RNA sequence: GUGGCCACCUGGCUCUGAGAACUGAACUCCCUAGGCUGCAGCUCCAGCAGACACCCUGGGGACUCAGUUCUGGUCCCUGGUGGUGCCGC
Number, nucleotide and partner (000 for none) at each position: 001g000002u000003g000004g000005c000006c000007a000008c080009c079010u000011g077012g076013c000014u000015c000016u000017g000018a071019g070020a069021a068022c067023u066024g065025a064026a000027c000028u000029c000030c000031c000032u000033a000034g055035g054036c000037u000038g000039c000040a000041g000042c000043u000044c000045c000046a000047g000048c000049a000050g000051a000052c000053a000054c035055c034056c000057u000058g000059g000060g000061g000062a000063c000064u025065c024066a023067g022068u021069u020070c019071u018072g000073g000074u000075c000076c012077c011078u000079g009080g008081u000082g000083g000084u000085g000086c000087c000088g000089c000
Overview: mir-146 microRNA precursor family: an 89-nucleotide RNA from Carlito syrichta. Rfam 15.1 lists 1,617 matches to the family in 642 species. It scores 59 bits against the family's covariance model. The source organism's lineage runs through Eukaryota, Chordata, Vertebrata, Primates and Carlito. Its family is annotated with miRNA-mediated post-transcriptional gene silencing and RISC complex in the Gene Ontology.